The record is a 72-nucleotide RNA from Dissostichus mawsoni, which matches "Small nucleolar RNA SNORD26" in Rfam.
On this family, see Tycowski et al., Nature 1996: "A mammalian gene with introns instead of exons generating stable RNA products".
By type it is a C/D-box small nucleolar RNA.
Lineage of the source: Eukaryota > Teleostomi > Neoteleostei > Acanthomorphata > Dissostichus.
[Rfam]
RNA sequence: CUACAGUGAUGUUUCAAUUGAACUCUCUCACUGAAAUCUUUUGUGGAAAACAUAACUCAAACUCUGAGUAGC
Dot-bracket structure: ((((...............................................................)))).